[Rfam]
Nucleotides: 070
Stems, first nucleotide, its partner, number of pairs: 001070008011029005020055004031040001045062005
Number, partner (000 for none) and nucleotide at each position: 001070g002069g003068g004067a005066u006065u007064u008063g009000a010000g011029g012028a013027c014026g015025g016000a017000a018000c019000g020055g021054g022053c023052a024000g025015c026014c027013g028012u029011c030000a031040c032000c033000c034000u035000u036000g037000u038000u039000g040031g041000a042000g043000a044000u045062g046061u047060g048059g049058g050000a051000g052023u053022g054021u055020c056000a057000c058049c059048c060047c061046a062045c063008c064007a065006a066005a067004u068003c069002c070001c

Rfam assigns this 70-nucleotide RNA sequence to the family "skipping-rope RNA". It is one of the family's seed sequences. Pairs were carried over by alignment from the consensus structure, which is taken from published work.